[Rfam]
RNA sequence: UUGCAUGCAGUGGCUUUUUGCCACCACACGUCCACCUCUCCCUACAGAUGAGAUUGUGGAUGUACAACAGCAUGCUAGAGUGACAUGGAGUUAACAGGGCCACCAGUCUCUCAAGAGCAGACUGCGUUGGUAGUAUAACACUCCUACAAUA
Numbered sequence: 001u002u003g004c005a006u007g008c009a010g011u012g013g014c015u016u017u018u019u020g021c022c023a024c025c026a027c028a029c030g031u032c033c034a035c036c037u038c039u040c041c042c043u044a045c046a047g048a049u050g051a052g053a054u055u056g057u058g059g060a061u062g063u064a065c066a067a068c069a070g071c072a073u074g075c076u077a078g079a080g081u082g083a084c085a086u087g088g089a090g091u092u093a094a095c096a097g098g099g100c101c102a103c104c105a106g107u108c109u110c111u112c113a114a115g116a117g118c119a120g121a122c123u124g125c126g127u128u129g130g131u132a133g134u135a136u137a138a139c140a141c142u143c144c145u146a147c148a149a150u151a
Base pairs, nucleotide, nucleotide: 003075004074005073006072007071008070087144088143089142090141099131100130103126104124105123106122107121108120109119110117